[Rfam]
RNA: glmS glucosamine-6-phosphate activated ribozyme aptamer
Organism: Sutcliffiella cohnii
RNA sequence: GAAAAUAGAAAAGCGCCUGAACUAAACUGUGAGCGGAAAAGAGUUUAGUUGACGAGGAGAAGGUUUAUCGAAAGUUCGGCGGAUACCUUCCGGUUGUUCAGUCACAACUGUAACGUUUUAAUUAAAACCAUAGAGGCAACUUUAUGUACAAAGAUUAAAACAUGAUUGAAA
Numbered sequence: 001g002a003a004a005a006u007a008g009a010a011a012a013g014c015g016c017c018u019g020a021a022c023u024a025a026a027c028u029g030u031g032a033g034c035g036g037a038a039a040a041g042a043g044u045u046u047a048g049u050u051g052a053c054g055a056g057g058a059g060a061a062g063g064u065u066u067a068u069c070g071a072a073a074g075u076u077c078g079g080c081g082g083a084u085a086c087c088u089u090c091c092g093g094u095u096g097u098u099c100a101g102u103c104a105c106a107a108c109u110g111u112a113a114c115g116u117u118u119u120a121a122u123u124a125a126a127a128c129c130a131u132a133g134a135g136g137c138a139a140c141u142u143u144a145u146g147u148a149c150a151a152a153g154a155u156u157a158a159a160a161c162a163u164g165a166u167u168g169a170a171a
Base pairs, nucleotide, nucleotide: 020050021049022048023047024046025045026044027043059090060089061088062087063086068079069078070077071076091110092109093108094107095106096105115161116160117159118158119157120156121155129146130145131144132143133142134141135140